[Rfam]
RNA sequence: AAGGCUUGCUGGAGCUCCGCAGCGGCGCCUGGGGUGAACCCGACACCGUGACCACCAUCCGGAGCUUGA
Numbered sequence: 001a002a003g004g005c006u007u008g009c010u011g012g013a014g015c016u017c018c019g020c021a022g023c024g025g026c027g028c029c030u031g032g033g034g035u036g037a038a039c040c041c042g043a044c045a046c047c048g049u050g051a052c053c054a055c056c057a058u059c060c061g062g063a064g065c066u067u068g069a
Stems, first nucleotide, its partner, number of pairs: 012067008023048003030042004
RNA: ybhL leader